[Rfam]
RNA sequence: GGGAAACGGGCAGGCGGCGGCGACCGCCGAAACAACCGCA
Numbered sequence: 001g002g003g004a005a006a007c008g009g010g011c012a013g014g015c016g017g018c019g020g021c022g023a024c025c026g027c028c029g030a031a032a033c034a035a036c037c038g039c040a
Stems, first nucleotide, its partner, number of pairs: 013028005020039003

Source information
The family of this 40-nucleotide RNA sequence from Polerovirus CABYV is "Putative RNA-dependent RNA polymerase ribosomal frameshift site". A reference for the family is Hauser et al. (2002), "Biological properties and molecular characterization of beet chlorosis virus (BChV)", Arch Virol. The source organism's lineage runs through Viruses, Riboviria, Pisoniviricetes, Solemoviridae and Polerovirus CABYV. By type it is a frameshift element.